[Rfam]
RNA sequence: UAAAGACGCGCAUUUGUUAUCAUCAUCUCAUCCCUGACAACGGAGAUGUUAAUUUGACCACAGUGAUUGUAGCCCUUUU
Numbered sequence: 001u002a003a004a005g006a007c008g009c010g011c012a013u014u015u016g017u018u019a020u021c022a023u024c025a026u027c028u029c030a031u032c033c034c035u036g037a038c039a040a041c042g043g044a045g046a047u048g049u050u051a052a053u054u055u056g057a058c059c060a061c062a063g064u065g066a067u068u069g070u071a072g073c074c075c076u077u078u079u
Base pairs, nucleotide, nucleotide: 029048030047031046032045034043035042036041056074058072060070061069062068
The record is a 79-nucleotide sequence from Candidatus Erwinia dacicola, which matches "MicA sRNA" in Rfam.
By type it is a small RNA.
Rfam links the family to the GO term mRNA binding.
A search with the family's covariance model found it, with a score of 59 bits.
A reference for the family is Udekwu et al. (2005), "Hfq-dependent regulation of OmpA synthesis is mediated by an antisense RNA", Genes Dev.